[Rfam]
RNA sequence: CUACCCCAAAAUAUGGUACCCUGGCAUACUGAGUAUUUUAAUACGGGCAUACUCAGUAUACCAUAGUGCCAUAUUUUGGGGUAG
Number, nucleotide and partner (000 for none) at each position: 001c084002u083003a082004c081005c080006c079007c078008a077009a076010a075011a074012u073013a072014u071015g070016g069017u068018a067019c066020c000021c000022u063023g062024g061025c000026a059027u058028a057029c056030u055031g054032a053033g052034u051035a050036u049037u000038u047039u046040a000041a000042u000043a000044c000045g000046g039047g038048c000049a036050u035051a034052c033053u032054c031055a030056g029057u028058a027059u026060a000061c024062c023063a022064u000065a000066g019067u018068g017069c016070c015071a014072u013073a012074u011075u010076u009077u008078g007079g006080g005081g004082u003083a002084g001

Rfam assigns this 84-nucleotide RNA from Pongo pygmaeus to the family "mir-1263 microRNA precursor family". The family's consensus secondary structure was predicted with RNAalifold. The source organism's lineage runs through Eukaryota, Opisthokonta, Gnathostomata, Amniota and Pongo. Rfam's curators put it in the seed alignment. Rfam links the family to the GO terms RISC complex and miRNA-mediated post-transcriptional gene silencing.